[Rfam]
Guanidine-I riboswitch aptamer: a 171-nucleotide sequence from Thermotalea metallivorans. About the family: This family represents a conserved RNA structure found upstream of the ykkC and yxkD genes in Bacillus subtilis and related genes in other bacteria. The source organism's lineage runs through Bacteria, Bacillati, Clostridia, Thermotaleaceae and Thermotalea. It scores 69 bits against the family's covariance model.

RNA sequence: UGAAAGUGUAUCUAGGGUUCCGGCUUUUAUAGCUUGACUUAUUGUAGAAUUGUGCUAUCUGGGCAUAAUAGUGACUAGGGAAGAUAGGUUGGCUGAAAAAGUGACUGGUCCGAGUGAUACAGGUAUUGCGGCCUUGCGAUACUACACCGAGGGGAGAAAAGCCCGGGCGGG
Dot-bracket structure: ......((((((..((...(((((((((....................................................................))))))..).)).))....))))))((((((((......)))))))).(.[....(((.......))).)..]..